Rfam assigns this 47-nucleotide RNA from Apolygus lucorum to the family "Histone 3' UTR stem-loop". By type it is a cis-regulatory element. The literature on the family includes a 2014 paper in Proc Natl Acad Sci U S A by Zhang et al., "Molecular mechanisms for the regulation of histone mRNA stem-loop-binding protein by phosphorylation". The organism belongs to Apolygus, within Eukaryota.
[Rfam]
RNA sequence: UUAACGGUUCUUUUCAGAACCACCACACAAAUAAUAAUAUUGUCUCG
Numbered sequence: 001u002u003a004a005c006g007g008u009u010c011u012u013u014u015c016a017g018a019a020c021c022a023c024c025a026c027a028c029a030a031a032u033a034a035u036a037a038u039a040u041u042g043u044c045u046c047g
Stems, first nucleotide, its partner, number of pairs: 006021006